[Rfam]
RNA sequence: GCUGCGGCUAGGUUCGCUACCGAAAACCGGAUUACACCACCGGCCCGCCGCAGCGUUUUCCUUUUGGUG
Number, nucleotide and partner (000 for none) at each position: 001g054002c053003u052004g051005c050006g049007g048008c047009u000010a000011g021012g020013u019014u000015c000016g000017c000018u000019a013020c012021c011022g000023a000024a000025a000026a000027c043028c042029g041030g040031a000032u000033u000034a000035c000036a000037c066038c000039a064040c030041c029042g028043g027044c000045c000046c000047g008048c007049c006050g005051c004052a003053g002054c001055g000056u000057u000058u000059u000060c000061c000062u000063u000064u039065u000066g037067g000068u000069g000
Rfam assigns this 69-nucleotide sequence from Novipirellula aureliae to the family "int-alpA RNA".
A search with the family's covariance model found it, with a score of 43 bits.
Acidobacteria (1 example), Planctomycetes (1 example), Proteobacteria.
NCBI's taxonomy places the organism under Bacteria, Pseudomonadati, Pirellulales, Pirellulaceae, Novipirellula.
Rfam 15.1 lists 577 matches to the family in 491 species.